[Rfam]
RNA sequence: UAAAAGGUUUUCUAGGGUUCCGCGUCAACCGGCGGUCUGGACCGAGAGAAAACGCACAGGCUCGGCAGUCUGUGACACGGAGGGAUAAAAGCCCGGGAGAA
Number, nucleotide and partner (000 for none) at each position: 001u000002a000003a000004a000005a000006g000007g053008u052009u051010u050011u049012c048013u000014a000015g043016g042017g000018u000019u000020c040021c039022g037023c034024g033025u032026c031027a000028a000029c000030c000031g026032g025033c024034g023035g000036u000037c022038u000039g021040g020041a000042c016043c015044g000045a000046g000047a000048g012049a011050a010051a009052a008053c007054g000055c074056a073057c072058a071059g070060g069061c068062u000063c000064g000065g000066c000067a000068g061069u060070c059071u058072g057073u056074g055075a000076c096077a000078c099079g000080g000081a000082g094083g093084g092085a000086u000087a000088a000089a000090a000091g000092c084093c083094c082095g000096g076097g000098a000099g078100a000101a000
The family of this 101-nucleotide sequence from Halalkalibacter oceani is "Guanidine-I riboswitch aptamer". The pairing is the family consensus, mapped onto this sequence. Rfam links the family to the GO term regulation of gene expression. NCBI's taxonomy places the organism under Bacteria, Bacillati, Bacilli, Bacillaceae, Halalkalibacter.